[Rfam]
Nucleotides: 088
Base pairs, nucleotide, nucleotide: 001019002018003017004016005015029087030086032082033081034080035079036078037077038076039075040074042073043072044071045070046069047068048067
Number, partner (000 for none) and nucleotide at each position: 001019a002018u003017a004016g005015a006000g007000c008000a009000a010000c011000a012000g013000c014000u015005u016004c017003u018002a019001u020000g021000c022000a023000g024000u025000u026000u027000u028000u029087a030086g031000u032082a033081g034080g035079c036078c037077c038076c039075g040074a041000u042073u043072a044071a045070u046069c047068u048067c049000u050000c051000a052000c053000u054000c055000g056000c057000c058000a059000a060000a061000g062000u063000u064000a065000a066000g067048g068047a069046g070045a071044u072043u073042a074040u075039c076038g077037g078036g079035g080034u081033u082032u083000c084000g085000u086030u087029u088000u
Rfam assigns this 88-nucleotide sequence to the family "CopA-like RNA". In several groups of bacterial plasmids, antisense RNAs regulate copy number through inhibition of replication initiator protein synthesis. The literature on the family includes a 2001 paper in J Mol Biol by Nordgren et al., "Real time kinetic studies of the interaction between folded antisense and target RNAs using surface plasmon resonance".